[Rfam]
Source information
A member of the RNA family "Bacterial RNase P class B" from Streptohalobacillus salinus, 390 nucleotides long.
RNA sequence: AUGUUUUGAUGAUCGCUGCAAAUGUUUUAUUUGUAGAGGAAAGUCCAUGCUCGCACAAGCUGUGAUGCUUGUAGUGUUCGUGCUUGAUGAAUAAAUAAGUCAAGGCAGUCUCACUCGGUGAGACUGACGGCAGGGAACUGAGCUACGUCUUCGGAUAUGCUCACAAUACCUUGAAAGUGCCACAGUGACGUAGUCAGACGGGAAACCGUUUGAGUGGAACGCGGUAAACCCCACGAGUGAGCAACCCAAAUAUUGGUAGGGGCAUCUUUGAUUAGGGAAUUUGAACCGAAACAAGGGCAUAAUCUUUGAUUGUGCAGAUAGAUGAUUAUCACUAAGGCACGAGGCUGACCACCGUUUGUAGUGCUCUAGGACAGAACAUGGCUUAUAAAA
Number, nucleotide and partner (000 for none) at each position: 001a000002u000003g000004u390005u389006u388007u000008g330009a329010u328011g327012a326013u325014c324015g000016c036017u035018g034019c033020a032021a031022a000023u000024g000025u000026u000027u000028u000029a000030u000031u021032u020033g019034u018035a017036g016037a000038g000039g000040a000041a384042a383043g382044u000045c381046c380047a379048u378049g377050c241051u240052c239053g238054c237055a072056c071057a070058a069059g068060c067061u000062g000063u000064g000065a000066u000067g060068c059069u058070u057071g056072u055073a000074g000075u000076g000077u000078u236079c235080g234081u233082g232083c104084u103085u102086g101087a100088u099089g000090a000091a000092u000093a000094a000095a000096u000097a000098a000099g088100u087101c086102a085103a084104g083105g128106c126107a125108g124109u123110c122111u121112c120113a119114c118115u000116c000117g000118g114119u113120g112121a111122g110123a109124c108125u107126g106127a000128c105129g231130g230131c000132a171133g170134g169135g000136a000137a000138c000139u000140g162141a161142g160143c159144u000145a000146c000147g156148u155149c154150u000151u000152c000153g000154g149155a148156u147157a000158u000159g143160c142161u141162c140163a000164c000165a000166a000167u000168a000169c134170c133171u132172u000173g000174a000175a000176a000177g229178u228179g225180c224181c223182a000183c000184a000185g000186u000187g000188a000189c000190g000191u000192a000193g000194u213195c212196a211197g210198a209199c208200g207201g206202g000203a000204a000205a000206c201207c200208g199209u198210u197211u196212g195213a194214g000215u000216g000217g000218a000219a000220c000221g000222c000223g181224g180225u179226a000227a000228a178229c177230c130231c129232c082233a081234c080235g079236a078237g054238u053239g052240a051241g050242c000243a000244a000245c261246c260247c259248a000249a000250a000251u000252a000253u000254u000255g000256g000257u000258a000259g247260g246261g245262g000263c000264a000265u296266c295267u000268u294269u293270g292271a000272u290273u000274a000275g000276g000277g000278a000279a000280u000281u000282u000283g000284a000285a000286c000287c000288g000289a000290a272291a000292c270293a269294a268295g266296g265297g315298c314299a313300u312301a311302a310303u000304c000305u000306u000307u000308g000309a000310u302311u301312g300313u299314g298315c297316a000317g000318a000319u000320a000321g000322a000323u000324g014325a013326u012327u011328a010329u009330c008331a000332c369333u368334a367335a000336g365337g364338c363339a362340c361341g000342a000343g000344g000345c000346u000347g000348a000349c000350c000351a000352c000353c000354g000355u000356u000357u000358g000359u000360a000361g340362u339363g338364c337365u336366c000367u334368a333369g332370g000371a000372c000373a000374g000375a000376a000377c049378a048379u047380g046381g045382c043383u042384u041385a000386u000387a000388a006389a005390a004

Description
Rfam classes the family as a ribozyme. Rfam's curators write: Ribonuclease P (RNase P) is a ubiquitous endoribonuclease, found in archaea, bacteria and eukarya as well as chloroplasts and mitochondria. Taxonomically the source falls in Streptohalobacillus (Bacteria, Bacillati, Bacilli, Bacillaceae). Rfam links the family to the GO terms tRNA processing, dimeric ribonuclease P complex and ribonuclease P activity.